A member of the RNA family "BsrC" from Carnobacterium iners, 87 nucleotides long. The match comes from Rfam's covariance-model search (65 bits). By type it is a small RNA. Lineage of the source: Bacteria > Bacillati > Bacillota > Lactobacillales > Carnobacterium. The 301 nucleotide sequence from Kouji Nakamura has been trimmed to a highly conserved ~85 nucleotide long core to form this family.
[Rfam]
RNA sequence: UCUCAUUUAGACAACAUAAACCCAACCUCUUUUAUGUCCUUACAGUUCUAAAACUGUGCCAGUGCGAAUAAAUUUCUUUAAAACUAU
Numbered sequence: 001u002c003u004c005a006u007u008u009a010g011a012c013a014a015c016a017u018a019a020a021c022c023c024a025a026c027c028u029c030u031u032u033u034a035u036g037u038c039c040u041u042a043c044a045g046u047u048c049u050a051a052a053a054c055u056g057u058g059c060c061a062g063u064g065c066g067a068a069u070a071a072a073u074u075u076c077u078u079u080a081a082a083a084c085u086a087u
Stems, first nucleotide, its partner, number of pairs: 035066002039062002041058007